The family of this 400-nucleotide RNA from Pseudomonas fluorescens is "Pseudomonas sRNA CrcZ". Rfam classes the family as a small RNA.
RNA sequence: AUAACAAGAAUAAAAAGCACCAAGCCUAAUAAAAAUAAGACGAAACGACUCUGACAUAACAAAAACAACACGGCAGAGACGCAGCUAACAGAUUUUUUUGGAGAAGAUGUGCUUCGCAGGGUACGGCGUGCCGAAACCCGCAACCGGUUAGAGAAAAAUAAAACUACCUCAGGUAGCUACCCACUGGUUGGAUCGAUAACGAAGAAGCAGAUCAGCGCUCAAAAAAAUACGUUUGCUCUUGACCCCGAAUGGGGGUCGCCCAAAACAGCGGUAAAGGGUAACGGUUGCCAAAAACAACAAUAGACCGCCCCUCAAUAAUAAAAAAAGAGCACGCAACGACAAAUUAAAGGGGACCCUCGGGUCCCCUUUGUGCUUUCUGCGUUUCGUUCAUGUGUUGAUU
Numbered sequence: 001a002u003a004a005c006a007a008g009a010a011u012a013a014a015a016a017g018c019a020c021c022a023a024g025c026c027u028a029a030u031a032a033a034a035a036u037a038a039g040a041c042g043a044a045a046c047g048a049c050u051c052u053g054a055c056a057u058a059a060c061a062a063a064a065a066c067a068a069c070a071c072g073g074c075a076g077a078g079a080c081g082c083a084g085c086u087a088a089c090a091g092a093u094u095u096u097u098u099u100g101g102a103g104a105a106g107a108u109g110u111g112c113u114u115c116g117c118a119g120g121g122u123a124c125g126g127c128g129u130g131c132c133g134a135a136a137c138c139c140g141c142a143a144c145c146g147g148u149u150a151g152a153g154a155a156a157a158a159u160a161a162a163a164c165u166a167c168c169u170c171a172g173g174u175a176g177c178u179a180c181c182c183a184c185u186g187g188u189u190g191g192a193u194c195g196a197u198a199a200c201g202a203a204g205a206a207g208c209a210g211a212u213c214a215g216c217g218c219u220c221a222a223a224a225a226a227a228u229a230c231g232u233u234u235g236c237u238c239u240u241g242a243c244c245c246c247g248a249a250u251g252g253g254g255g256u257c258g259c260c261c262a263a264a265a266c267a268g269c270g271g272u273a274a275a276g277g278g279u280a281a282c283g284g285u286u287g288c289c290a291a292a293a294a295c296a297a298c299a300a301u302a303g304a305c306c307g308c309c310c311c312u313c314a315a316u317a318a319u320a321a322a323a324a325a326a327g328a329g330c331a332c333g334c335a336a337c338g339a340c341a342a343a344u345u346a347a348a349g350g351g352g353a354c355c356c357u358c359g360g361g362u363c364c365c366c367u368u369u370g371u372g373c374u375u376u377c378u379g380c381g382u383u384u385c386g387u388u389c390a391u392g393u394g395u396u397g398a399u400u
Stems, first nucleotide, its partner, number of pairs: 046081002049078004096224005110217003141190007164176005242256005276382001278380002281378001282307004329373004347368009
Lineage of the source: Bacteria > Pseudomonadota > Pseudomonadaceae > Pseudomonas > Pseudomonas fluorescens. A reference for the family is Livny et al. (2006), "Identification of 17 Pseudomonas aeruginosa sRNAs and prediction of sRNA-encoding genes in 10 diverse pathogens using the bioinformatic tool sRNAPredict2", Nucleic Acids Res.